[Rfam]
The record is a 392-nucleotide sequence from Pacificitalea manganoxidans, which matches "Bacterial RNase P class A" in Rfam. It scores 282 bits against the family's covariance model. By type it is a ribozyme. The family's consensus secondary structure is taken from published work. NCBI's taxonomy places the organism under Bacteria, Pseudomonadota, Alphaproteobacteria, Paracoccaceae, Pacificitalea.
RNA sequence: GCGGAGGGCCGGAUGGCCGCGUGGGCCCUGCAAGGGGAACUGCGAGGAAAGUCCGGACUCCAUGAAGCAACGGUGCCGGGUAACGCCCGGGCGGGGCAACCCGACGGAGAGCGCCACAGAGAUGAGACCGCCCGGCCUUGGCCGGGUAAGGGUGAAACGGUGGGGUAAGAGCCCACCGCGGGGGCGGCAACGUCACCGGCAUGGCAAGCCCCACCGGGAGCAACGCCGAAUAGGAACCUCGCGGGGGCAACCCCAGGCCUGCUUCGGCCCUGAGGUUCGGGUAGGCGGCUAGAGCCGUCGGGCAACCGGCGGCGCAGACGAAUGGUCAUCCUUGGGCCGUGCUUUCGGGCGCGCGCCCUCGACAAAAUCCGGCUUACAGGCUCUCCGCGCAA
Numbered sequence: 001g002c003g004g005a006g007g008g009c010c011g012g013a014u015g016g017c018c019g020c021g022u023g024g025g026c027c028c029u030g031c032a033a034g035g036g037g038a039a040c041u042g043c044g045a046g047g048a049a050a051g052u053c054c055g056g057a058c059u060c061c062a063u064g065a066a067g068c069a070a071c072g073g074u075g076c077c078g079g080g081u082a083a084c085g086c087c088c089g090g091g092c093g094g095g096g097c098a099a100c101c102c103g104a105c106g107g108a109g110a111g112c113g114c115c116a117c118a119g120a121g122a123u124g125a126g127a128c129c130g131c132c133c134g135g136c137c138u139u140g141g142c143c144g145g146g147u148a149a150g151g152g153u154g155a156a157a158c159g160g161u162g163g164g165g166u167a168a169g170a171g172c173c174c175a176c177c178g179c180g181g182g183g184g185c186g187g188c189a190a191c192g193u194c195a196c197c198g199g200c201a202u203g204g205c206a207a208g209c210c211c212c213a214c215c216g217g218g219a220g221c222a223a224c225g226c227c228g229a230a231u232a233g234g235a236a237c238c239u240c241g242c243g244g245g246g247g248c249a250a251c252c253c254c255a256g257g258c259c260u261g262c263u264u265c266g267g268c269c270c271u272g273a274g275g276u277u278c279g280g281g282u283a284g285g286c287g288g289c290u291a292g293a294g295c296c297g298u299c300g301g302g303c304a305a306c307c308g309g310c311g312g313c314g315c316a317g318a319c320g321a322a323u324g325g326u327c328a329u330c331c332u333u334g335g336g337c338c339g340u341g342c343u344u345u346c347g348g349g350c351g352c353g354c355g356c357c358c359u360c361g362a363c364a365a366a367a368u369c370c371g372g373c374u375u376a377c378a379g380g381c382u383c384u385c386c387g388c389g390c391a392a
Base pairs, nucleotide, nucleotide: 001388002387003386004385005384006383007382008381009380010379011377012330013329014328015327016326017325018324020044021043022042023041024040027037028036049375050374051373053372054371055370056369057368058220059219060218061217066264067263071216072215073214074213075212076090077089078088079087080086091105092103093102094101095100106211107210111209112208113205114204115203128151129150130147131146132145133144134143135142136141159177160176161175162174163173164172178200179198180197181196183194184193185192186191224287225286226285227284234278235277236276237275238274239273256269257268258267259266294313295312296311297310298309299308300307301306